[Rfam]
U2 spliceosomal RNA: a 191-nucleotide RNA sequence from Bos taurus. Rfam describes the family as follows. U2 is a small nuclear RNA (snRNA) component of the spliceosome (involved in pre-mRNA splicing). Rfam links the family to the GO terms U2 snRNP, mRNA branch site recognition and pre-mRNA branch point binding. Pairs were carried over by alignment from the consensus structure, which is taken from published work. Rfam classes the family as a spliceosomal small nuclear RNA.

RNA sequence: GUAUCUUCCUGGUCUUUUGGCUAAGAUCAAGUGUAGUAUCUGCUCUUAUCUGUUUAAUAUCUGAUAUGUCUUCUAACUGAGGAAAAUGUACUCUAUGGAUUUUUGGAGCAGGGAGUUGGAAUAGGAGCUUGCUCUGUCCACUCCAUGCAUCGACCUAGUAUUGCAGUACCUCCAGAAACUGAAAAAAAAAA
Numbered sequence: 001g002u003a004u005c006u007u008c009c010u011g012g013u014c015u016u017u018u019g020g021c022u023a024a025g026a027u028c029a030a031g032u033g034u035a036g037u038a039u040c041u042g043c044u045c046u047u048a049u050c051u052g053u054u055u056a057a058u059a060u061c062u063g064a065u066a067u068g069u070c071u072u073c074u075a076a077c078u079g080a081g082g083a084a085a086a087u088g089u090a091c092u093c094u095a096u097g098g099a100u101u102u103u104u105g106g107a108g109c110a111g112g113g114a115g116u117u118g119g120a121a122u123a124g125g126a127g128c129u130u131g132c133u134c135u136g137u138c139c140a141c142u143c144c145a146u147g148c149a150u151c152g153a154c155c156u157a158g159u160a161u162u163g164c165a166g167u168a169c170c171u172c173c174a175g176a177a178a179c180u181g182a183a184a185a186a187a188a189a190a191a
Stems, first nucleotide, its partner, number of pairs: 007026002011022004047066004052061001069083005112144005118138002124135004150181001152179001155175002158172001
Dot-bracket structure: ......((..((((....))))..))....................((((.(........).))))..(((((.....)))))............................(((((.((....((((....)))).)).))))).....(.(..((.(.............).))...).)..........